[Rfam]
The family of this 50-nucleotide RNA sequence from Brassica oleracea is "Plastid-psbM 3UTR RNA". It scores 59 bits against the family's covariance model. The base pairs follow the family's consensus structure, which was predicted with LocARNA. For this family Rfam cites "Retrograde signaling in plants: A critical review focusing on the GUN pathway and beyond" (Richter et al., Plant Commun, 2023). By type it is a cis-regulatory element. Rfam describes the family as follows. Plastid psbM is a non-coding RNA (ncRNA) recognised in plastids. It was found in the three prime untranslated region (3UTR) of psbM gene, its 3UTR location suggests a role in transcript maturation.
RNA sequence: GGUCCGCUAGUAUGGUAGAAAGAGAUCUUUUUCUACCAUACUAGCCAUUA
Numbered sequence: 001g002g003u004c005c006g007c008u009a010g011u012a013u014g015g016u017a018g019a020a021a022g023a024g025a026u027c028u029u030u031u032u033c034u035a036c037c038a039u040a041c042u043a044g045c046c047a048u049u050a
Base pairs, nucleotide, nucleotide: 006045007044008043009042010041011040012039013038014037015036016035017034018033019032020031021030022029023028